Record summary: A member of the RNA family "Lysine riboswitch aptamer" from Flavonifractor sp. An135, 181 nucleotides long. Riboswitches are metabolite binding domains within certain messenger RNAs that serve as precision sensors for their corresponding targets.
[Rfam]
RNA sequence: UUACAGGAUAGAGGUUGCGGGACGCAUCAGUAGCGCGGCGAGGGCUCCGAGGGCCCUUUGACCCGACGCGAAAGGGUUUCCCGCCGAAGAGGAUCGUCCCCCGGAAGGCCGUCCUCUGGGCGUGCAGGCGAAAGCCGCGCGACUGUCACCGGGUGGGUCCCGGUGGAGCGCUGUCUGUGUU
Dot-bracket structure: .....((((((.....((((((.((.......((((((........................))).)))......)).))))))...(((((((.(((........))).)))))))((.(((((.(.......).))))).)).(((((((.......)))))))....)))))).....
Taxonomically the source falls in Flavonifractor (Bacteria, Bacillati, Bacillota, Eubacteriales).
A search with the family's covariance model found it, with a score of 92 bits.